A member of the RNA family "Small nucleolar RNA SNORD42" from Sakesphorus luctuosus, 63 nucleotides long. Rfam classes the family as a C/D-box small nucleolar RNA. It scores 40 bits against the family's covariance model. Its family is annotated with nucleolus and RNA processing in the Gene Ontology. NCBI's taxonomy places the organism under Eukaryota, Bilateria, Chordata, Neognathae, Sakesphorus. The family has 7 seed sequences and 848 matches in Rfam 15.1. snoRNA U42 is found in intron 3 of the ribosomal protein L23a (RPL23a) gene in humans and is also present in mice.

[Rfam]
RNA sequence: GUGCAAAAGAUGGAAAAAGAUGUACAAUGAAAUUUGAAAUGAUUAAAGGAAUCUGUAAUGCUC
Numbered sequence: 001g002u003g004c005a006a007a008a009g010a011u012g013g014a015a016a017a018a019g020a021u022g023u024a025c026a027a028u029g030a031a032a033u034u035u036g037a038a039a040u041g042a043u044u045a046a047a048g049g050a051a052u053c054u055g056u057a058a059u060g061c062u063c
Base pairs, nucleotide, nucleotide: 001063003061004060005059